[Rfam]
RNA sequence: GCUGAGGAGUGAUGACAAUAAAAGGCCGAAUUGCAGUGUCUGUUAAGGUUUCUCUCCCAAGGCACAAUGACAAAUCUGCUGAAGCGACUUUGUCUGACCUCAGU
Numbered sequence: 001g002c003u004g005a006g007g008a009g010u011g012a013u014g015a016c017a018a019u020a021a022a023a024g025g026c027c028g029a030a031u032u033g034c035a036g037u038g039u040c041u042g043u044u045a046a047g048g049u050u051u052c053u054c055u056c057c058c059a060a061g062g063c064a065c066a067a068u069g070a071c072a073a074a075u076c077u078g079c080u081g082a083a084g085c086g087a088c089u090u091u092g093u094c095u096g097a098c099c100u101c102a103g104u
Base pairs, nucleotide, nucleotide: 001104002103003102004101005100006099007098014094015093016092025034026033035091036090038088039087040086041084043082044081045080048065049064051062052061053060067077069075
Dot-bracket structure: (((((((......(((........((......))((.((((.(((..((.(((......))).)).(.(.....).)..))).).))).)))))...)))))))
Rfam assigns this 104-nucleotide RNA sequence from Salvator merianae to the family "Small nucleolar RNA SNORD89". Rfam describes the family as follows. snoRNA HBII-289 belongs to the family of C/D snoRNAs. Pairs were carried over by alignment from the consensus structure, which was predicted with RNAalifold.